[Rfam]
RNA sequence: UAACCUCUGGCGAAAAACGCGUAUGUUG
Numbered sequence: 001u002a003a004c005c006u007c008u009g010g011c012g013a014a015a016a017a018c019g020c021g022u023a024u025g026u027u028g
Base pairs, nucleotide, nucleotide: 001028002027003026004025008023010020011019012018
RNA: L19-Flavobacteria ribosomal protein leader